The family of this 118-nucleotide RNA sequence from Ligilactobacillus agilis is "Ribosomal protein L10 leader".

[Rfam]
RNA sequence: UUUUAAAUUAUGAUUCUACCGAAGACUCAGGUGGUGCAAACCUUAAUAUCCUGCCGAGGAGACUUGAAUAAACUCUCUCUCUAUGUCUUCGUGAACAUAGGGUUUUUUAUUUUAAUAA
Dot-bracket structure: ...........................((((.(((....))).......)))).........................((((((((........))))))))................
The family's RNA type in Rfam is cis-regulatory leader.